[Rfam]
The record is an 86-nucleotide RNA sequence from Chrysemys picta, which matches "Small nucleolar RNA SNORD121A" in Rfam. Lineage of the source: Eukaryota > Craniata > Vertebrata > Testudinoidea > Chrysemys picta. Gene Ontology terms of the family: RNA processing and nucleolus. By type it is a C/D-box small nucleolar RNA. The literature on the family includes a 2006 paper in Nucleic Acids Res by Yang et al., "snoSeeker: an advanced computational package for screening of guide and orphan snoRNA genes in the human genome".

RNA sequence: GUCCAGAAGACAGUGAUGUGGUAUUUUCCAAGCACAUAUCUGAUUGCUUUGUGUGGAAAUUCAACCAUUUCUGAGUGUUUUUGGAC
Numbered sequence: 001g002u003c004c005a006g007a008a009g010a011c012a013g014u015g016a017u018g019u020g021g022u023a024u025u026u027u028c029c030a031a032g033c034a035c036a037u038a039u040c041u042g043a044u045u046g047c048u049u050u051g052u053g054u055g056g057a058a059a060u061u062c063a064a065c066c067a068u069u070u071c072u073g074a075g076u077g078u079u080u081u082u083g084g085a086c
Stems, first nucleotide, its partner, number of pairs: 001086006008079002010076002